[Rfam]
RNA: mir-9229 microRNA precursor family
Organism: Myotis lucifugus
Nucleotides: 076
Stems, first nucleotide, its partner, number of pairs: 001075001003073005011065002015061001017059001019057001021056003029053002032050001034048003037044002
Number, partner (000 for none) and nucleotide at each position: 001075g002000a003073g004072a005071c006070a007069c008000c009000c010000c011065c012064a013000u014000a015061g016000a017059g018000c019057a020000g021056g022055a023054c024000u025000u026000g027000c028000u029053u030052c031000a032050g033000u034048g035047g036046g037044g038043c039000u040000u041000u042000g043038g044037u045000g046036c047035u048034c049000u050032c051000a052030g053029a054023g055022u056021c057019u058000u059017c060000c061015c062000c063000u064012u065011g066000a067000a068000u069007g070006u071005g072004u073003c074000a075001c076000u